The record is a 356-nucleotide RNA sequence from Thioalkalivibrio paradoxus, which matches "Bacterial RNase P class A" in Rfam.
Gene Ontology terms of the family: ribonuclease P activity, dimeric ribonuclease P complex and tRNA processing.
Rfam describes the family as follows. Ribonuclease P (RNase P) is a ubiquitous endoribonuclease, found in archaea, bacteria and eukarya as well as chloroplasts and mitochondria.

[Rfam]
RNA sequence: GGAGUCGGCCGGGCUGUCGCUGCGCUUAUCGCGUGGAGGAAAGUCCGGGCUCCGCAGGGCAGGACGCCAGGUAACGCCUGGGCGGCGCGAGCCGACGGAAAGUGCCACAGAAAAGACACCGCCGAUGGGGCCGGUUCUUCCGGUCCACAGGUAAGGGUGAAAUGGUGCGGUAAGAGCGCACCGCGCGCCUGGCAACAGUGCGUGGCAGGGUAAACCCCGUCCGGAGCAAGGCCAAAUAGGGGUGCGAUGGUGUGGCCCGCACUGCACCCGGGUAGGCUGCUAGAGGCGCCUGGCGACAGGCGUCCCAGAGGAAUGACAGCCCUCGACAGAACCCGGCUUACAGGCCGACUCCCACU
Dot-bracket structure: ((((((((((((((((((.((((((.....))))))....[[[.[[[[[((((...[[[[.((((((((((.....)))))(((((....)))).)((...(((((............(((((..((((..............))))..)))..)).......((((((.......))))))(((((((((....))).))))).)..)))..)))))))))))))...((((......((((((...(((((.]]]]))))))))))).....))))......((((((((....))))))))..........)))))))..........]]]]]]]].).))))))))))....